RNA sequence: GUGCAAUGAGGAAAACACAUCUGUGCUCCAGAGAAGAGAUGAAUAUCUCUUCUGUGACGGCUGUACAACCUCUAAGAAGUUCUGAGCAC
Numbered sequence: 001g002u003g004c005a006a007u008g009a010g011g012a013a014a015a016c017a018c019a020u021c022u023g024u025g026c027u028c029c030a031g032a033g034a035a036g037a038g039a040u041g042a043a044u045a046u047c048u049c050u051u052c053u054g055u056g057a058c059g060g061c062u063g064u065a066c067a068a069c070c071u072c073u074a075a076g077a078a079g080u081u082c083u084g085a086g087c088a089c
Stems, first nucleotide, its partner, number of pairs: 001089004

Shown here is an 89-nucleotide RNA sequence from Daucus carota, a member of the family "Small nucleolar RNA U61". Clan: SNORD61 clan. By type it is a C/D-box small nucleolar RNA. A reference for the family is Brown et al. (2003), "Plant snoRNA database", Nucleic Acids Res.